A member of the RNA family "STnc490 Hfq binding RNA" from Desulfovibrio piger, 122 nucleotides long.
It is annotated as a small RNA.
The organism belongs to Desulfovibrio, within Bacteria.
The family has 76 seed sequences and 285 matches in Rfam 15.1.

RNA sequence: AACCUCCCGCUAGGCGGGAGGUUCAAAAAAGCUUAAAGCUUUGCAUAUGUUAUAAAAACUCCUUUUGAUCUGCUGCCAUCACGUCGCGGUCUGGCAACUGCGACAAUGAAGCAAAUCAAAAG
Numbered sequence: 001a002a003c004c005u006c007c008c009g010c011u012a013g014g015c016g017g018g019a020g021g022u023u024c025a026a027a028a029a030a031g032c033u034u035a036a037a038g039c040u041u042u043g044c045a046u047a048u049g050u051u052a053u054a055a056a057a058a059c060u061c062c063u064u065u066u067g068a069u070c071u072g073c074u075g076c077c078a079u080c081a082c083g084u085c086g087c088g089g090u091c092u093g094g095c096a097a098c099u100g101c102g103a104c105a106a107u108g109a110a111g112c113a114a115a116u117c118a119a120a121a122g
Stems, first nucleotide, its partner, number of pairs: 001023010028042006062122008071113004077108003083104008